[Rfam]
Betaproteobacteria toxic small RNA: a 62-nucleotide sequence from Betaproteobacteria bacterium SCN1. The base pairs follow the family's consensus structure, which was predicted with WAR. The source organism's lineage runs through Bacteria, Pseudomonadati, Pseudomonadota and Betaproteobacteria. It scores 54 bits against the family's covariance model. On this family, see Kimelman et al., Genome Res 2012: "A vast collection of microbial genes that are toxic to bacteria". From the family's description: Overexpression in amino aid rich medium attenuates growth, suggesting role in repressing amino acid intake and metabolism.
RNA sequence: UGUCUCCUCCAAUCCUCCUCCUUUGGUGGAUCUCAGCCCGGCCCCGAGCCGGGCGUUUUUUU
Numbered sequence: 001u002g003u004c005u006c007c008u009c010c011a012a013u014c015c016u017c018c019u020c021c022u023u024u025g026g027u028g029g030a031u032c033u034c035a036g037c038c039c040g041g042c043c044c045c046g047a048g049c050c051g052g053g054c055g056u057u058u059u060u061u062u
Base pairs, nucleotide, nucleotide: 008030009029010028011027014026015025036054037053038052039051040050041049042048
Dot-bracket structure: .......((((..((.........)))))).....(((((((.....)))))))........